[Rfam]
RNA sequence: ACUCAACCCAUGAAAGUAGACACCCCACCAUAAGGGGAUGAGCGAAAUCAUGGGUUUUUUG
Number, nucleotide and partner (000 for none) at each position: 001a000002c000003u000004c000005a056006a055007c054008c053009c052010a051011u050012g049013a048014a000015a000016g000017u000018a000019g043020a000021c040022a039023c000024c036025c035026c034027a000028c000029c000030a000031u000032a000033a000034g026035g025036g024037g000038a000039u022040g021041a000042g000043c019044g000045a000046a000047a000048u013049c012050a011051u010052g009053g008054g007055u006056u005057u000058u000059u000060u000061g000

About this RNA
This 61-nucleotide sequence from Staphylococcus chromogenes belongs to the Rfam family "Staphylococcus aureus small RNA TEG147". The organism belongs to Staphylococcus chromogenes, within Bacteria. The literature on the family includes a 2010 paper in PLoS One by Beaume et al., "Cartography of methicillin-resistant S. aureus transcripts: detection, orientation and temporal expression during growth phase and stress conditions". From the family's description: TEG147 is an RNA element identified by RNA-seq in S. aureus N315 with homologues in other Staphylococcus species. Other names: sRNA85, srn_0960, SAOUHSCs103. Rfam's curators put it in the seed alignment. The base pairs follow the family's consensus structure, which was predicted with LocARNA. Its family is annotated with mRNA binding in the Gene Ontology.